[Rfam]
RNA sequence: GACGCGCUUCCAUCACUACGGAUCGUCCGGCACGUACCUGCCGGUGAAGGAGAACCAUC
Numbered sequence: 001g002a003c004g005c006g007c008u009u010c011c012a013u014c015a016c017u018a019c020g021g022a023u024c025g026u027c028c029g030g031c032a033c034g035u036a037c038c039u040g041c042c043g044g045u046g047a048a049g050g051a052g053a054a055c056c057a058u059c
Stems, first nucleotide, its partner, number of pairs: 009051003013047003027044006
msiK RNA: a 59-nucleotide sequence from Agromyces mediolanus. Rfam classes the family as a cis-regulatory element.